[Rfam]
RNA: FMN riboswitch aptamer (RFN element)
RNA sequence: CUGGACCUUCGGGGCAGGGUGAGCGCCUCACGGCGCAAUUCCCGACCGGUGGUGACGCGGCGGCGGCCGCUCAGCCCACGAGCUCCCCAUCGCGGGGGCAGACCCGGUGCGAUUCCGGGGCCGACGGUAGAGUCCGGAUGGGAGAAGGUCCCA
Numbered sequence: 001c002u003g004g005a006c007c008u009u010c011g012g013g014g015c016a017g018g019g020u021g022a023g024c025g026c027c028u029c030a031c032g033g034c035g036c037a038a039u040u041c042c043c044g045a046c047c048g049g050u051g052g053u054g055a056c057g058c059g060g061c062g063g064c065g066g067c068c069g070c071u072c073a074g075c076c077c078a079c080g081a082g083c084u085c086c087c088c089a090u091c092g093c094g095g096g097g098g099c100a101g102a103c104c105c106g107g108u109g110c111g112a113u114u115c116c117g118g119g120g121c122c123g124a125c126g127g128u129a130g131a132g133u134c135c136g137g138a139u140g141g142g143a144g145a146a147g148g149u150c151c152c153a
Stems, first nucleotide, its partner, number of pairs: 003151008017043003045133002047123002049079004074121002082099003103119005125136003